The record is a 124-nucleotide RNA from Brassica carinata, which matches "MIR9563 microRNA precursor family" in Rfam. It scores 100 bits against the family's covariance model. The source organism's lineage runs through Eukaryota, Magnoliopsida, Gunneridae, Pentapetalae and Brassica. The family's consensus secondary structure was predicted with RNAalifold.
RNA sequence: GGAAUAUAAGAACUCGUCUCUGAUUUUUAACUAAAAAAACUAAAAAACGGUUCUUAAAUACGAGUUUUAAAAGCCGGUUCUUAAUUUUUUUAGUUAAAAGUUAAGAGAUAGAUUCUUAUAUUCC
Number, nucleotide and partner (000 for none) at each position: 001g124002g123003a122004a121005u120006a119007u118008a117009a116010g115011a114012a113013c000014u111015c000016g109017u108018c107019u106020c105021u104022g102023a101024u100025u099026u098027u097028u096029a095030a094031c093032u092033a091034a090035a089036a088037a087038a086039a000040c000041u083042a082043a081044a000045a079046a078047a000048c000049g000050g000051u000052u000053c000054u000055u000056a000057a000058a000059u000060a000061c000062g000063a000064g000065u000066u000067u000068u000069a000070a000071a000072a000073g000074c000075c000076g000077g000078u046079u045080c000081u043082u042083a041084a000085u000086u038087u037088u036089u035090u034091u033092a032093g031094u030095u029096a028097a027098a026099a025100g024101u023102u022103a000104a021105g020106a019107g018108a017109u016110a000111g014112a000113u012114u011115c010116u009117u008118a007119u006120a005121u004122u003123c002124c001